The family of this 78-nucleotide RNA sequence from Microcaecilia unicolor is "Mammalian CPEB3 ribozyme".
Lineage of the source: Eukaryota > Metazoa > Deuterostomia > Teleostomi > Microcaecilia.
The match comes from Rfam's covariance-model search (46 bits).
[Rfam]
RNA sequence: CACCCACCUCUAGGGACCACAGCAGAAGCAUCCAUAUCAUGGUUCUUAUCUGAUUUUUAUGAAUCAGCAAAUUCUGCU
Numbered sequence: 001c002a003c004c005c006a007c008c009u010c011u012a013g014g015g016a017c018c019a020c021a022g023c024a025g026a027a028g029c030a031u032c033c034a035u036a037u038c039a040u041g042g043u044u045c046u047u048a049u050c051u052g053a054u055u056u057u058u059a060u061g062a063a064u065c066a067g068c069a070a071a072u073u074c075u076g077c078u
Stems, first nucleotide, its partner, number of pairs: 013046006021078007028040001050067007